[Rfam]
RNA: mir-3473 microRNA precursor family
RNA sequence: ACCGCUGAACCAUCUCUCCAGCCCCUAAUUUCAGUUAAAAAAAAUUUUUAUUGGGCUGGAGAGAUGGCUCAGCGGU
Numbered sequence: 001a002c003c004g005c006u007g008a009a010c011c012a013u014c015u016c017u018c019c020a021g022c023c024c025c026u027a028a029u030u031u032c033a034g035u036u037a038a039a040a041a042a043a044a045u046u047u048u049u050a051u052u053g054g055g056c057u058g059g060a061g062a063g064a065u066g067g068c069u070c071a072g073c074g075g076u
Base pairs, nucleotide, nucleotide: 002075003074004073005072006071007070008069010067011066012065013064014063015062016061017060018059019058020057021056022055023054024053